Background
This 113-nucleotide sequence from Listeria grayi belongs to the Rfam family "SAM riboswitch aptamer (S box leader)".

[Rfam]
RNA sequence: CUCUUAUUAUGAGUGGUAGAGGGACUGGCCCGAUGAAACCCAGCAACCUUUCAAUUUUUUAUUGAAAAGGUGCUAAUUCCUGCAAAGCUUCAGUAAGCUUUGAGAGAUAAGAG
Numbered sequence: 001c002u003c004u005u006a007u008u009a010u011g012a013g014u015g016g017u018a019g020a021g022g023g024a025c026u027g028g029c030c031c032g033a034u035g036a037a038a039c040c041c042a043g044c045a046a047c048c049u050u051u052c053a054a055u056u057u058u059u060u061a062u063u064g065a066a067a068a069g070g071u072g073c074u075a076a077u078u079c080c081u082g083c084a085a086a087g088c089u090u091c092a093g094u095a096a097g098c099u100u101u102g103a104g105a106g107a108u109a110a111g112a113g
Stems, first nucleotide, its partner, number of pairs: 001113008013041001015040003021031003025082001027080002042074004047070002050066004078105001083102006
Annotation: Rfam's curators write: The SAM riboswitch is found upstream of a number of genes which code for proteins involved in methionine or cysteine biosynthesis in Gram-positive bacteria. A search with the family's covariance model found it, with a score of 94 bits.